Rfam assigns this 79-nucleotide RNA from Dipodomys ordii to the family "Small nucleolar RNA SNORD26". Clan: SNORD26 clan. Gene Ontology terms of the family: nucleolus and RNA processing.
RNA sequence: CUACGUUGAUGAUUUUUUUUAGUUGAACUCUCUCUUUCUGAUGGCUCGGUGGAGAAAGGACGAAGAUAUCCUGAGUAGC
Numbered sequence: 001c002u003a004c005g006u007u008g009a010u011g012a013u014u015u016u017u018u019u020u021a022g023u024u025g026a027a028c029u030c031u032c033u034c035u036u037u038c039u040g041a042u043g044g045c046u047c048g049g050u051g052g053a054g055a056a057a058g059g060a061c062g063a064a065g066a067u068a069u070c071c072u073g074a075g076u077a078g079c
Base pairs, nucleotide, nucleotide: 001078002077003076004075
Dot-bracket structure: ((((......................................................................)))).